The family of this 103-nucleotide RNA sequence from Brassica rapa is "MIR828 microRNA precursor family". Gene Ontology terms of the family: miRNA-mediated post-transcriptional gene silencing and RISC complex. A search with the family's covariance model found it, with a score of 81 bits. On this family, see Rajagopalan et al., Genes Dev 2006: "A diverse and evolutionarily fluid set of microRNAs in Arabidopsis thaliana". The organism belongs to Brassica, within Eukaryota. The family has 16 seed sequences and 204 matches in Rfam 15.1.
RNA sequence: CCAAUGUUUCUUGCUUAAAUGAGUAUUCCAUGAAAGUGAUUCUCACUCACGCAUGAGUUGGGUACUCUCUUCAUGAGAUGCUCAUUUGAGCAAGCAACGUUUG
Numbered sequence: 001c002c003a004a005u006g007u008u009u010c011u012u013g014c015u016u017a018a019a020u021g022a023g024u025a026u027u028c029c030a031u032g033a034a035a036g037u038g039a040u041u042c043u044c045a046c047u048c049a050c051g052c053a054u055g056a057g058u059u060g061g062g063u064a065c066u067c068u069c070u071u072c073a074u075g076a077g078a079u080g081c082u083c084a085u086u087u088g089a090g091c092a093a094g095c096a097a098c099g100u101u102u103g
Stems, first nucleotide, its partner, number of pairs: 004100005010094018029075002